[Rfam]
Background:
Rfam assigns this 122-nucleotide sequence from Enhydra lutris to the family "Small nucleolar RNA SNORA28". The organism belongs to Enhydra lutris, within Eukaryota. The family has 26 seed sequences and 922 matches in Rfam 15.1. It scores 92 bits against the family's covariance model. From the family's description: ACA28 is a member of the H/ACA class of snoRNA that guide the sites of modification of uridines to pseudouridines.

RNA sequence: AAGCAACACUUUGUGACAGGUGAUCGAAGCUGUCUGACGCAAUCUAAGCUGUCUAGGCAAAAAAGUCUCACCUAUUCCAGCGCUUUCCCCAUAAGACCAACUGUUACACAGACUUAAACAGU
Numbered sequence: 001a002a003g004c005a006a007c008a009c010u011u012u013g014u015g016a017c018a019g020g021u022g023a024u025c026g027a028a029g030c031u032g033u034c035u036g037a038c039g040c041a042a043u044c045u046a047a048g049c050u051g052u053c054u055a056g057g058c059a060a061a062a063a064a065g066u067c068u069c070a071c072c073u074a075u076u077c078c079a080g081c082g083c084u085u086u087c088c089c090c091a092u093a094a095g096a097c098c099a100a101c102u103g104u105u106a107c108a109c110a111g112a113c114u115u116a117a118a119c120a121g122u
Stems, first nucleotide, its partner, number of pairs: 009048003012041004017036006063115006073108001075106001078103003086096002